[Rfam]
Nucleotides: 116
Stems, first nucleotide, its partner, number of pairs: 001028003005024001006022006053109001055107001064094008073085003
Number, partner (000 for none) and nucleotide at each position: 001028a002027g003026g004000u005024a006022g007021c008020a009019u010018u011017u012000a013000a014000a015000a016000g017011a018010g019009a020008u021007g022006c023000g024005u025000a026003u027002c028001u029000g030000a031000u032000a033000c034000a035000a036000u037000c038000u039000u040000c041000c042000u043000a044000g045000a046000g047000u048000g049000a050000a051000g052000u053109u054000g055107u056000u057000a058000c059000u060000u061000c062000c063000u064094g065093c066092u067091u068090g069089u070088g071087g072000u073085a074084u075083u076000g077000u078000u079000a080000g081000c082000a083075a084074g085073u086000u087071c088070u089069g090068c091067a092066a093065g094064u095000c096000u097000c098000u099000a100000a101000a102000u103000g104000a105000c106000a107055a108000g109053a110000c111000a112000g113000u114000g115000c116000c